Rfam assigns this 93-nucleotide RNA sequence to the family "PhotoRC-II RNA". By type it is a cis-regulatory element.
RNA sequence: UAACGUUGCUCACACCCGUUAACCGAGACCUAUGGGUGUAUAAAGUACGUCUCUCAUAUCCUGCCUGAGGGUGGCGGGAGCAUAGUAUCACCA
Numbered sequence: 001u002a003a004c005g006u007u008g009c010u011c012a013c014a015c016c017c018g019u020u021a022a023c024c025g026a027g028a029c030c031u032a033u034g035g036g037u038g039u040a041u042a043a044a045g046u047a048c049g050u051c052u053c054u055c056a057u058a059u060c061c062u063g064c065c066u067g068a069g070g071g072u073g074g075c076g077g078g079a080g081c082a083u084a085g086u087a088u089c090a091c092c093a
Stems, first nucleotide, its partner, number of pairs: 013038007025053005059079007